[Rfam]
RNA sequence: CCUGCCGAAGUUUCCCUCAGGAUAGCAGUAACGUUUUCAGUUUUAUGAGGUAAAGCGAAUGAUUAGAGGCCUUGGGGUUGAAACAACCUUAACCUAUUCUCAAACUUUAAAUAUGUAAGAAGUCCUUGUUACUUAAUUGAACGUGGACAUUUGAAUGUAUCGUUACUAGUGGGCCAUUUUUGGUAAGCAGAACUGGCGAUGCGGGAUGAACCGAACGCGGGGUUAAGGUGCCGGAAUGCACGCUCAUCAGACACCACAAAAGGUGUUAGUUCAUCUAGACAGCAGGACGGUGGCCAUGGAAGUCGGAAUCCGCUAAGGAGUGUGUAACAACUCACCUGCCGAAUGAACUAGCCCUGAAAAUGGAUGGCGCUUAAGCGUGCUACCCAUACCCCGCCGUCAAGGUAAAAACCAAGCCUUGACGAGUAGGCAGGCGCGGGGGUCAGUGACGAAGCCUUGGGAGUGAUCCCGGGUAGAACGGCCCCUGGUGCAGAU
Numbered sequence: 001c002c003u004g005c006c007g008a009a010g011u012u013u014c015c016c017u018c019a020g021g022a023u024a025g026c027a028g029u030a031a032c033g034u035u036u037u038c039a040g041u042u043u044u045a046u047g048a049g050g051u052a053a054a055g056c057g058a059a060u061g062a063u064u065a066g067a068g069g070c071c072u073u074g075g076g077g078u079u080g081a082a083a084c085a086a087c088c089u090u091a092a093c094c095u096a097u098u099c100u101c102a103a104a105c106u107u108u109a110a111a112u113a114u115g116u117a118a119g120a121a122g123u124c125c126u127u128g129u130u131a132c133u134u135a136a137u138u139g140a141a142c143g144u145g146g147a148c149a150u151u152u153g154a155a156u157g158u159a160u161c162g163u164u165a166c167u168a169g170u171g172g173g174c175c176a177u178u179u180u181u182g183g184u185a186a187g188c189a190g191a192a193c194u195g196g197c198g199a200u201g202c203g204g205g206a207u208g209a210a211c212c213g214a215a216c217g218c219g220g221g222g223u224u225a226a227g228g229u230g231c232c233g234g235a236a237u238g239c240a241c242g243c244u245c246a247u248c249a250g251a252c253a254c255c256a257c258a259a260a261a262g263g264u265g266u267u268a269g270u271u272c273a274u275c276u277a278g279a280c281a282g283c284a285g286g287a288c289g290g291u292g293g294c295c296a297u298g299g300a301a302g303u304c305g306g307a308a309u310c311c312g313c314u315a316a317g318g319a320g321u322g323u324g325u326a327a328c329a330a331c332u333c334a335c336c337u338g339c340c341g342a343a344u345g346a347a348c349u350a351g352c353c354c355u356g357a358a359a360a361u362g363g364a365u366g367g368c369g370c371u372u373a374a375g376c377g378u379g380c381u382a383c384c385c386a387u388a389c390c391c392c393g394c395c396g397u398c399a400a401g402g403u404a405a406a407a408a409c410c411a412a413g414c415c416u417u418g419a420c421g422a423g424u425a426g427g428c429a430g431g432c433g434c435g436g437g438g439g440u441c442a443g444u445g446a447c448g449a450a451g452c453c454u455u456g457g458g459a460g461u462g463a464u465c466c467c468g469g470g471u472a473g474a475a476c477g478g479c480c481c482c483u484g485g486u487g488c489a490g491a492u
Base pairs, nucleotide, nucleotide: 001431002430003429004428005427006426011024013022014021015020027167028166029165030164031163032162033161041120042119043118044117045116046115047114053108054106055105060102061101062100065097067095068094069093072092073091074090075089076088077087079085122148123147124146125145127143128142129141130140173197174196175195176194178192179191180190181189182188202213203212204211217394218393219392220391221390223388227384228383229382236381238380241377242376243375261355262354263353265352266351267350268349269348270347271346272345273344274343282339283338284337285336286335288312289311290310294306295305313317318333322331323330395421396420397419398418399417400416401415402414403413432487434484435483436482437481438480439479440478441477443476444475451471452470457466458465459464